[Rfam]
RNA sequence: GGCUUCCUAGUGUUCACCUCAGGUUCUGUACUUAUAUUGAUUGUUUAGAAAUUGGAGGCAAAGUAAACAUAUGCUAUGUACACCUCAACCCAGGUUGUGCCUGGUUUGCAUUGUGAAUUGGUGAAAAAAAU
Number, nucleotide and partner (000 for none) at each position: 001g000002g059003c058004u057005u056006c055007c054008u000009a000010g000011u000012g000013u000014u000015c000016a000017c000018c000019u000020c043021a042022g041023g000024u000025u000026c000027u036028g035029u034030a000031c000032u000033u000034a029035u028036a027037u000038u000039g000040a000041u022042u021043g020044u000045u000046u000047a000048g000049a000050a000051a000052u000053u000054g007055g006056a005057g004058g003059c002060a000061a000062a000063g000064u000065a000066a000067a000068c000069a000070u000071a000072u123073g122074c121075u120076a118077u117078g000079u000080a000081c000082a000083c000084c000085u000086c108087a107088a106089c000090c104091c103092a102093g101094g100095u099096u000097g000098u000099g095100c094101c093102u092103g091104g090105u000106u088107u087108g086109c000110a000111u000112u000113g000114u000115g000116a000117a077118u076119u000120g075121g074122u073123g072124a000125a000126a000127a000128a000129a000130a000131u000
RNA: Small nucleolar RNA SNORA51
Organism: Castor canadensis